[Rfam]
RNA sequence: UCUUUAUUGAGUAUAUGGGGGUAAAGCAUCAAGAUUCAACGGGAGAUGCAACAGAAAAUAAAAAAGGAGGCAAAAGCCUCCUUUUUUUUAGAUAU
Numbered sequence: 001u002c003u004u005u006a007u008u009g010a011g012u013a014u015a016u017g018g019g020g021g022u023a024a025a026g027c028a029u030c031a032a033g034a035u036u037c038a039a040c041g042g043g044a045g046a047u048g049c050a051a052c053a054g055a056a057a058a059u060a061a062a063a064a065a066g067g068a069g070g071c072a073a074a075a076g077c078c079u080c081c082u083u084u085u086u087u088u089u090a091g092a093u094a095u
Stems, first nucleotide, its partner, number of pairs: 008038001010036003016031003020027001061086011